[Rfam]
RNA: M-box riboswitch aptamer (ykoK leader)
Organism: Oryzomonas rubra
RNA sequence: CAUAUUCCUCGUUAGCAGAGGCGUUUGCACAAACACAGGCUACUGCCCAAAAAUGUCGAAAGACGCCAAUGGGUAGACCAGGUCUUGCCGGAUUAAGGCUUGACUUAACGUAGCUGGUCAUUGACCUACGUUGUGCACUGCCGAAAGUCAACCAGUGGGGAAGUGG
Numbered sequence: 001c002a003u004a005u006u007c008c009u010c011g012u013u014a015g016c017a018g019a020g021g022c023g024u025u026u027g028c029a030c031a032a033a034c035a036c037a038g039g040c041u042a043c044u045g046c047c048c049a050a051a052a053a054u055g056u057c058g059a060a061a062g063a064c065g066c067c068a069a070u071g072g073g074u075a076g077a078c079c080a081g082g083u084c085u086u087g088c089c090g091g092a093u094u095a096a097g098g099c100u101u102g103a104c105u106u107a108a109c110g111u112a113g114c115u116g117g118u119c120a121u122u123g124a125c126c127u128a129c130g131u132u133g134u135g136c137a138c139u140g141c142c143g144a145a146a147g148u149c150a151a152c153c154a155g156u157g158g159g160g161a162a163g164u165g166g
Stems, first nucleotide, its partner, number of pairs: 005162006011152002013096001015148002020142003026137007039114005045074005054065004081105004087099003116126003